[Rfam]
Overview
The family of this 80-nucleotide sequence from Roseburia sp. 1XD42-69 is "ZMP/ZTP riboswitch aptamer (pfl RNA motif)". The family's consensus secondary structure is taken from published work. The literature on the family includes a 2020 paper in Cell Chem Biol by Tran et al., "Parallel Discovery Strategies Provide a Basis for Riboswitch Ligand Design". Its family is annotated with regulation of purine nucleotide biosynthetic process and one-carbon metabolic process in the Gene Ontology. The match comes from Rfam's covariance-model search (56 bits).
RNA sequence: GAACAGUUAUAUGACUGACGGAACGUGGAAAGAACCACAUGGAGUAUAACGGAAAUAAGCCGACCGUCUGGGCGAUGUGC
Numbered sequence: 001g002a003a004c005a006g007u008u009a010u011a012u013g014a015c016u017g018a019c020g021g022a023a024c025g026u027g028g029a030a031a032g033a034a035c036c037a038c039a040u041g042g043a044g045u046a047u048a049a050c051g052g053a054a055a056u057a058a059g060c061c062g063a064c065c066g067u068c069u070g071g072g073c074g075a076u077g078u079g080c
Base pairs, nucleotide, nucleotide: 004052006050007049008048009047010046011045012044015041017068018067019066020065021064025038026037027036028035059073060072061071